Shown here is a 63-nucleotide RNA from Paraburkholderia caffeinitolerans, a member of the family "Betaproteobacteria toxic small RNA". Taxonomically the source falls in Paraburkholderia (Bacteria, Pseudomonadati, Pseudomonadota, Burkholderiales).
RNA sequence: UGUCUCCUCCACCCUCCUCCAAAGAGUGGAUUAAGCCCGAACAACGCGUUCGGGCUUUUUUUA
Numbered sequence: 001u002g003u004c005u006c007c008u009c010c011a012c013c014c015u016c017c018u019c020c021a022a023a024g025a026g027u028g029g030a031u032u033a034a035g036c037c038c039g040a041a042c043a044a045c046g047c048g049u050u051c052g053g054g055c056u057u058u059u060u061u062u063a
Stems, first nucleotide, its partner, number of pairs: 008030005013024001034056008